[Rfam]
Nucleotides: 122
Base pairs, nucleotide, nucleotide: 001040003038004037005036010035011034014030015029041048042047057071059069060068087115088114089113090112091110092109093108094107095106096105097104
Number, partner (000 for none) and nucleotide at each position: 001040g002000c003038c004037a005036u006000a007000c008000u009000a010035c011034g012000g013000u014030g015029c016000a017000a018000a019000c020000a021000g022000g023000g024000u025000u026000a027000a028000a029015g030014u031000a032000a033000a034011c035010g036005a037004u038003g039000a040001c041048c042047c043000a044000u045000c046000g047042g048041g049000a050000a051000c052000u053000c054000u055000g056000g057071g058000u059069u060068a061000a062000a063000a064000u065000a066000c067000g068060u069059a070000u071057c072000a073000a074000a075000a076000u077000g078000c079000a080000a081000a082000u083000c084000a085000a086000g087115a088114c089113u090112g091110a092109c093108u094107u095106g096105g097104c098000a099000a100000g101000u102000g103000c104097g105096c106095c107094a108093g109092g110091u111000g112090c113089g114088g115087u116000u117000u118000u119000u120000u121000u122000u